Overview
The record is a 210-nucleotide part of an RNA from Colletotrichum musicola, which matches "Ascomycota telomerase RNA" in Rfam. The base pairs follow the family's consensus structure. Rfam links the family to the GO terms telomere maintenance via telomerase, telomerase catalytic core complex and telomerase activity. The family is grouped with related families in Rfam's "Telomerase clan".
RNA sequence: UCCCCUUCAGUUCUCCGACUCUCGUUUUCCUCACGGAAUGUCUAUCGCAGACCUCCCAGCUCGGGCUGGAAAUCCACGAUACGUCGCAUCCGAGCCUGUAUCAGGACCUCGUGCUUGCCGCGAUUGGAUCUAUCGUGGCCUAUGGGCCUUGGCGCCCGACAACAGUCCGGCUGGGAGAACGAGUUUCGGAACUUAACCCUAAGUUGCCCU
Numbered sequence: 001u002c003c004c005c006u007u008c009a010g011u012u013c014u015c016c017g018a019c020u021c022u023c024g025u026u027u028u029c030c031u032c033a034c035g036g037a038a039u040g041u042c043u044a045u046c047g048c049a050g051a052c053c054u055c056c057c058a059g060c061u062c063g064g065g066c067u068g069g070a071a072a073u074c075c076a077c078g079a080u081a082c083g084u085c086g087c088a089u090c091c092g093a094g095c096c097u098g099u100a101u102c103a104g105g106a107c108c109u110c111g112u113g114c115u116u117g118c119c120g121c122g123a124u125u126g127g128a129u130c131u132a133u134c135g136u137g138g139c140c141u142a143u144g145g146g147c148c149u150u151g152g153c154g155c156c157c158g159a160c161a162a163c164a165g166u167c168c169g170g171c172u173g174g175g176a177g178a179a180c181g182a183g184u185u186u187c188g189g190a191a192c193u194u195a196a197c198c199c200u201a202a203g204u205u206g207c208c209c210u
Base pairs, nucleotide, nucleotide: 009193010192011191015189016188017187018186